A member of the RNA family "mir-7386 microRNA precursor family" from Sarcophilus harrisii, 59 nucleotides long. Gene Ontology terms of the family: miRNA-mediated post-transcriptional gene silencing and RISC complex.
RNA sequence: ACUUGGAUAAAGUGCUUUAUUUUGUGGAUAAUGCUGAAAUAAGGACUUUAUCCAUGGAA
Numbered sequence: 001a002c003u004u005g006g007a008u009a010a011a012g013u014g015c016u017u018u019a020u021u022u023u024g025u026g027g028a029u030a031a032u033g034c035u036g037a038a039a040u041a042a043g044g045a046c047u048u049u050a051u052c053c054a055u056g057g058a059a
Stems, first nucleotide, its partner, number of pairs: 002056001004054009018041007026034001